[Rfam]
Shown here is an 88-nucleotide sequence from Papaver nudicaule, a member of the family "Small nucleolar RNA Z159/U59".
A search with the family's covariance model found it, with a score of 61 bits.
RNA sequence: GUCUCUGAGGUUGAUUAAAACAAACUUUCGUUCUUCCGAGGUUUUAAUAAUCUAUGCGGAGAAAACUGGAGACCUGAACUGAAGAGAC
Numbered sequence: 001g002u003c004u005c006u007g008a009g010g011u012u013g014a015u016u017a018a019a020a021c022a023a024a025c026u027u028u029c030g031u032u033c034u035u036c037c038g039a040g041g042u043u044u045u046a047a048u049a050a051u052c053u054a055u056g057c058g059g060a061g062a063a064a065a066c067u068g069g070a071g072a073c074c075u076g077a078a079c080u081g082a083a084g085a086g087a088c
Stems, first nucleotide, its partner, number of pairs: 003086004
Clan: SNORD59 clan. For this family Rfam cites "The high diversity of snoRNAs in plants: identification and comparative study of 120 snoRNA genes from Oryza sativa" (Chen et al., Nucleic Acids Res, 2003). The organism belongs to Papaver, within Eukaryota.